About this RNA
The family of this 140-nucleotide RNA sequence from Zea mays is "Small nucleolar RNA F1/F2/snoR5a". Taxonomically the source falls in Zea (Eukaryota, Spermatophyta, Petrosaviidae, commelinids). Rfam links the family to the GO terms nucleolus and RNA processing. Rfam describes the family as follows. This family contains F1, F2 and snoR5a sequences, all of which are members of the the H/ACA class of snoRNA that guide the sites of modification of uridines to pseudouridines. Pairs were carried over by alignment from the consensus structure, which was predicted with PFOLD.
[Rfam]
RNA sequence: AAACGCCAUUUGGUAUCUGACUUGAAGUCAUUUUUUAUGAUUGUGUGUCUCGAAACAUGGCAGAAAUCAAAGGUUAACAGUUCUUGCGACACUAGUUGCUCACUUAUGAGCUUCGAGUUACUAUAUGCCCGUGUACAUGU
Numbered sequence: 001a002a003a004c005g006c007c008a009u010u011u012g013g014u015a016u017c018u019g020a021c022u023u024g025a026a027g028u029c030a031u032u033u034u035u036u037a038u039g040a041u042u043g044u045g046u047g048u049c050u051c052g053a054a055a056c057a058u059g060g061c062a063g064a065a066a067u068c069a070a071a072g073g074u075u076a077a078c079a080g081u082u083c084u085u086g087c088g089a090c091a092c093u094a095g096u097u098g099c100u101c102a103c104u105u106a107u108g109a110g111c112u113u114c115g116a117g118u119u120a121c122u123a124u125a126u127g128c129c130c131g132u133g134u135a136c137a138u139g140u
Base pairs, nucleotide, nucleotide: 005061006060007059008058009057019049020048021047023045024044026042027041028040029039077132078131080129091118092117093116095114098111099110100109
By type it is an H/ACA-box small nucleolar RNA.